The family of this 86-nucleotide RNA from Domibacillus epiphyticus is "c-di-GMP-I-GGC riboswitch aptamer".
RNA sequence: UACGAUAAUGGCAAACUUAUCGAAAGGUAAGGACGCAAAGCUACGGGUCUAAGGCAAAUAAAGCUAUGAUCGCCGGGUUGCCGAAA
Numbered sequence: 001u002a003c004g005a006u007a008a009u010g011g012c013a014a015a016c017u018u019a020u021c022g023a024a025a026g027g028u029a030a031g032g033a034c035g036c037a038a039a040g041c042u043a044c045g046g047g048u049c050u051a052a053g054g055c056a057a058a059u060a061a062a063g064c065u066a067u068g069a070u071c072g073c074c075g076g077g078u079u080g081c082c083g084a085a086a
Stems, first nucleotide, its partner, number of pairs: 001086001003083002011036002016031006034072001039079004044075003047070003
The family has 40 seed sequences and 1,298 matches in Rfam 15.1. The source organism's lineage runs through Bacteria, Bacillati, Bacilli, Bacillaceae and Domibacillus. Gene Ontology term of the family: cyclic-di-GMP binding. Pairs were carried over by alignment from the consensus structure, which is taken from published work.